[Rfam]
RNA sequence: ACAAUGAUACUUCUGUCCCCGGGUUGCCGGGGGCGGCUUCGGGCGUUCCCCGGAGGGGUGAGAGUCCCAUGA
Numbered sequence: 001a002c003a004a005u006g007a008u009a010c011u012u013c014u015g016u017c018c019c020c021g022g023g024u025u026g027c028c029g030g031g032g033g034c035g036g037c038u039u040c041g042g043g044c045g046u047u048c049c050c051c052g053g054a055g056g057g058g059u060g061a062g063a064g065u066c067c068c069a070u071g072a
Base pairs, nucleotide, nucleotide: 012069013036014035015034016033017032018031019030020029021028022027037055038054039053041051042050043049056068057067058066
RNA: pemK RNA